[Rfam]
Nucleotides: 075
Stems, first nucleotide, its partner, number of pairs: 013043003019075007026037002047064007
Number, partner (000 for none) and nucleotide at each position: 001000c002000u003000a004000c005000a006000a007000a008000g009000u010000c011000a012000a013043g014042g015041c016000c017000a018000u019075a020074g021073c022072a023071g024070a025069a026037g027036c028000a029000c030000u031000c032000a033000a034000u035000g036027g037026c038000a039000c040000a041015g042014c043013c044000c045000g046000u047064c048063a049062g050061g051060u052059u053058c054000c055000a056000a057000u058053g059052a060051g061050u062049c063048u064047g065000u066000g067000a068000a069025u070024u071023c072022u073021g074020c075019u
About this RNA
Shown here is a 75-nucleotide RNA from Alligator mississippiensis, a member of the family "Mammalian CPEB3 ribozyme". Rfam's curators write: The mammalian CPEB3 ribozyme is a self cleaving RNA located in the second intron of the CPEB3 gene which belongs to a family of genes regulating messenger RNA polyadenylation. This ribozyme is highly conserved and found only in mammals. A search with the family's covariance model found it, with a score of 37 bits.